[Rfam]
RNA sequence: AUAGUUUUGUGUUUUCUAGUGUGUAAAAGUCUAAGGAAUUUUCUAUGACUUUUACGCCUGAAUGUUUAUCAUUCACAGGGCAGUAAUUGAAAAGUUAUUGUCUCCACGUAUUUUGGGAAGGAAAAUAAGUAGAUUUAAUA
Number, nucleotide and partner (000 for none) at each position: 001a000002u000003a134004g000005u000006u131007u000008u000009g000010u000011g126012u125013u124014u123015u122016c121017u000018a000019g057020u056021g000022u000023g055024u054025a053026a052027a051028a050029g049030u048031c047032u000033a000034a000035g044036g043037a042038a000039u000040u000041u000042u037043c036044u035045a000046u000047g031048a030049c029050u028051u027052u026053u025054a024055c023056g020057c019058c000059u075060g074061a073062a072063u071064g000065u000066u000067u000068a000069u000070c000071a063072u062073u061074c060075a059076c000077a000078g103079g102080g101081c100082a099083g098084u097085a096086a095087u094088u093089g000090a000091a000092a000093a088094g087095u086096u085097a084098u083099u082100g081101u080102c079103u078104c117105c116106a000107c000108g000109u000110a000111u000112u000113u000114u000115g000116g105117g104118a000119a000120g000121g016122a015123a014124a013125a012126u011127a000128a000129g000130u000131a006132g000133a000134u003135u000136u000137a000138a000139u000140a000
Background: Shown here is a 140-nucleotide RNA from Clostridium disporicum, a member of the family "Molybdenum/Tungsten riboswitch aptamer (Moco RNA motif)". Taxonomically the source falls in Clostridium (Bacteria, Bacillati, Clostridia, Eubacteriales). A search with the family's covariance model found it, with a score of 63 bits.